A member of the RNA family "Lysine riboswitch aptamer" from Ligilactobacillus equi, 178 nucleotides long.
The match comes from Rfam's covariance-model search (94 bits).
On this family, see Sudarsan et al., Genes Dev 2003: "An mRNA structure in bacteria that controls gene expression by binding lysine".
Its family is annotated with lysine biosynthetic process in the Gene Ontology.
The family's consensus secondary structure is taken from published work.
RNA sequence: AUAUCGAAAAGAGGUCGCAACUGACAAGAGUAAGUUCACUGAGCUAAUAAAGUAGCGGAGAAGUGGGGUGAAAGGGGAGGUUGCCGAAGGGAGCUUAGACUUUAUGCUAAGUUUGCUGGGCCUAACCUUAAGAGGGGUAGGACUGUCGCGACAGAGGUUGCGGAGCGCUAAGAGAUAU
Numbered sequence: 001a002u003a004u005c006g007a008a009a010a011g012a013g014g015u016c017g018c019a020a021c022u023g024a025c026a027a028g029a030g031u032a033a034g035u036u037c038a039c040u041g042a043g044c045u046a047a048u049a050a051a052g053u054a055g056c057g058g059a060g061a062a063g064u065g066g067g068g069u070g071a072a073a074g075g076g077g078a079g080g081u082u083g084c085c086g087a088a089g090g091g092a093g094c095u096u097a098g099a100c101u102u103u104a105u106g107c108u109a110a111g112u113u114u115g116c117u118g119g120g121c122c123u124a125a126c127c128u129u130a131a132g133a134g135g136g137g138u139a140g141g142a143c144u145g146u147c148g149c150g151a152c153a154g155a156g157g158u159u160g161c162g163g164a165g166c167g168c169u170a171a172g173a174g175a176u177a178u
Stems, first nucleotide, its partner, number of pairs: 010169002017084006025076001033069001035067006088117002091114008118144002121141004126136003146163007